Rfam assigns this 70-nucleotide RNA from Micromonospora sp. MH33 to the family "Transposase-2 RNA". The base pairs follow the family's consensus structure, which is taken from published work. Taxonomically the source falls in Micromonospora (Bacteria, Actinomycetota, Actinomycetes, Micromonosporaceae). It is annotated as a small RNA.

RNA sequence: GAAACGUCAACCCGGCCCCGCGCACUGCGCAGGUAAGACCGGGACCGUUGUGCCGCAAGGCAGAACUGCC
Numbered sequence: 001g002a003a004a005c006g007u008c009a010a011c012c013c014g015g016c017c018c019c020g021c022g023c024a025c026u027g028c029g030c031a032g033g034u035a036a037g038a039c040c041g042g043g044a045c046c047g048u049u050g051u052g053c054c055g056c057a058a059g060g061c062a063g064a065a066c067u068g069c070c
Base pairs, nucleotide, nucleotide: 011043012042013041014040015039018032020030021029047066048065049064051062052061053060054059